RNA sequence: UUUGGGAAAUGAUGAGACUCAAACAUAUUAUCAGAAGCUCAAUGCUCUGUUGAAUGGUUUUUUUGCACGUCAGUCUGAUCCCAAA
Numbered sequence: 001u002u003u004g005g006g007a008a009a010u011g012a013u014g015a016g017a018c019u020c021a022a023a024c025a026u027a028u029u030a031u032c033a034g035a036a037g038c039u040c041a042a043u044g045c046u047c048u049g050u051u052g053a054a055u056g057g058u059u060u061u062u063u064u065g066c067a068c069g070u071c072a073g074u075c076u077g078a079u080c081c082c083a084a085a
Base pairs, nucleotide, nucleotide: 001085002084003083004082005081006080007079